msiK RNA: a 59-nucleotide sequence from Actinoplanes sp. N902-109.
Taxonomically the source falls in Actinoplanes (Bacteria, Actinomycetota, Actinomycetes, Micromonosporaceae).
RNA sequence: ACGCGGUUCCUCCCACUCGGAUCGUCCGGCACGUUCCUGCCGGUGGAAAGGAAGUAGCU
Number, nucleotide and partner (000 for none) at each position: 001a000002c000003g000004c000005g000006g000007u000008u000009c050010c000011u048012c000013c046014c045015a044016c000017u000018c000019g000020g000021a000022u000023c000024g000025u000026c043027c042028g041029g040030c039031a038032c000033g000034u000035u000036c000037c000038u031039g030040c029041c028042g027043g026044u015045g014046g013047a000048a011049a000050g009051g000052a000053a000054g000055u000056a000057g000058c000059u000